This 94-nucleotide sequence from Spinacia oleracea belongs to the Rfam family "Small nucleolar RNA R64/Z200 family". Its family is annotated with nucleolus and RNA processing in the Gene Ontology. Rfam classes the family as a C/D-box small nucleolar RNA. The match comes from Rfam's covariance-model search (72 bits). Rfam 15.1 lists 748 matches to the family in 228 species. Lineage of the source: Eukaryota > Euphyllophyta > Amaranthaceae > Anserineae > Spinacia.

[Rfam]
RNA sequence: UAGUUGCUCUGAUGAAUUGAUGGAAUAAUUCACAUGUCAGACUUCGGAGGUUGUUUCAACCUGUGAGAUAAAAAUCCUUAUUUCUGAGUAACAA
Numbered sequence: 001u002a003g004u005u006g007c008u009c010u011g012a013u014g015a016a017u018u019g020a021u022g023g024a025a026u027a028a029u030u031c032a033c034a035u036g037u038c039a040g041a042c043u044u045c046g047g048a049g050g051u052u053g054u055u056u057c058a059a060c061c062u063g064u065g066a067g068a069u070a071a072a073a074a075u076c077c078u079u080a081u082u083u084c085u086g087a088g089u090a091a092c093a094a
Stems, first nucleotide, its partner, number of pairs: 001094001003092005049061004